[Rfam]
RNA: Small nucleolar RNA SNORA84
Organism: Anolis carolinensis
Nucleotides: 133
Stems, first nucleotide, its partner, number of pairs: 001059004007050002010047001012045006019037005071125001074122005082115002084112004089107001091105003
Number, partner (000 for none) and nucleotide at each position: 001059g002058c003057c004056c005000u006000g007050u008049g009000g010047u011000u012045a013044c014043u015042g016041g017040a018000c019037g020036c021035u022034g023033u024000u025000c026000u027000c028000u029000c030000a031000g032000u033023a034022c035021g036020g037019u038000g039000c040017u041016u042015c043014a044013g045012u046000u047010a048000g049008u050007a051000g052000a053000a054000a055000u056004g057003g058002g059001c060000c061000a062000a063000a064000a065000g066000u067000a068000a069000u070000g071125c072000u073000u074122u075121g076120a077119c078118u079000u080000a081000c082115g083114c084112a085111u086110g087109g088000a089107g090000u091105c092104u093103g094000a095000c096000u097000u098000g099000u100000u101000a102000g103093c104092a105091g106000c107089c108000u109087c110086c111085a112084u113000a114083g115082c116000c117000c118078g119077g120076u121075c122074a123000u124000u125071g126000u127000g128000a129000c130000a131000c132000u133000u